RNA: Small nucleolar RNA snoR53Y
Organism: Arabidopsis thaliana
RNA sequence: GUUCCCUGUGAUGAUUUAAAAUCAAUACCAUGCUAAUGUAUAUUGAUAAUUUUUAUUUGAUUUAUAAGUGAUUUGCUGAGGGAACU
Numbered sequence: 001g002u003u004c005c006c007u008g009u010g011a012u013g014a015u016u017u018a019a020a021a022u023c024a025a026u027a028c029c030a031u032g033c034u035a036a037u038g039u040a041u042a043u044u045g046a047u048a049a050u051u052u053u054u055a056u057u058u059g060a061u062u063u064a065u066a067a068g069u070g071a072u073u074u075g076c077u078g079a080g081g082g083a084a085c086u
Stems, first nucleotide, its partner, number of pairs: 001085007